RNA sequence: CCCUAGCCCUGAUCGAAGCGGCAUCCUUUUGUGGCGUCCCGAUAGCUAUCGGGAGGCAUAAAAGAUACAGCGGAGAGCAGGAACAGCU
Number, nucleotide and partner (000 for none) at each position: 001c000002c000003c000004u000005a000006g000007c000008c000009c080010u079011g078012a000013u076014c075015g000016a000017a000018g071019c070020g000021g000022c000023a066024u065025c064026c000027u000028u000029u061030u060031g059032u058033g057034g000035c000036g000037u054038c053039c052040c051041g050042a049043u048044a000045g000046c000047u000048a043049u042050c041051g040052g039053g038054a037055g000056g000057c033058a032059u031060a030061a029062a000063a000064g025065a024066u023067a000068c000069a000070g019071c018072g000073g000074a000075g014076a013077g000078c011079a010080g009081g000082a000083a000084c000085a000086g000087c000088u000
Rfam assigns this 88-nucleotide sequence from Flavobacterium cheongpyeongense to the family "Flavo-1 RNA". By type it is a small RNA.